Rfam assigns this 265-nucleotide sequence from Anaerobacillus isosaccharinicus to the family "Bacterial large signal recognition particle RNA". Clan: SRP clan. The match comes from Rfam's covariance-model search (141 bits). About the family: The signal recognition particle (SRP) is a universally conserved ribonucleoprotein involved in the co-translational targeting of proteins to membranes.

[Rfam]
RNA sequence: UCGCAAUAGACGGGGAAGUAGCGGCGCCUUGUAACCUGCAAUCCGCUAUAGCAGGGUCGAAUUCCUAACGAAGGUCUAAUGAUGUGUGGUCAGUGCUUUUAAUUUGAUGUUGAGGAAAAAAACUUUUGCAAAGAAAAACCUACGAACGGGUCAGAUCCGGAAGGAAGCAGCCAUAAGGAGGACACUUUUCUUGUGUAAAAAGUCCAUUUUUCUGAGUUAAAGAAAAAGUAACGCAUGGAUGAUUAGCUCGUACUUAGGUUUGCGA
Dot-bracket structure: ((((((..(((((((...(...)...))))....(((((...........)))))))).....(((((....((.((.((.((.((((....(.((((((..((.(((.....(((((((..(((((.((.(((((..(((.(.....(((....(((....)))....)))....).))).....)))))))....)))))....)))))))..))).))..))))))..).)))).)).)).)).))....))))).))))))